[Rfam]
RNA sequence: CGAAAAAAGCAGAGGCACCCGCUUCUCACCUGUUCAACGCUAGCAAUAGCAGUUGGCUGGUACACCGAACGUUCAGAAAUGAUGAUGAGGUCGUGUGGGUGCAGUAUGCGCCGACGCUUUUUUUAUUUG
Numbered sequence: 001c002g003a004a005a006a007a008a009g010c011a012g013a014g015g016c017a018c019c020c021g022c023u024u025c026u027c028a029c030c031u032g033u034u035c036a037a038c039g040c041u042a043g044c045a046a047u048a049g050c051a052g053u054u055g056g057c058u059g060g061u062a063c064a065c066c067g068a069a070c071g072u073u074c075a076g077a078a079a080u081g082a083u084g085a086u087g088a089g090g091u092c093g094u095g096u097g098g099g100u101g102c103a104g105u106a107u108g109c110g111c112c113g114a115c116g117c118u119u120u121u122u123u124u125a126u127u128u129g
Stems, first nucleotide, its partner, number of pairs: 011026006028061003036054003039050002094116003098112006
RNA: Ribosomal protein L20 leader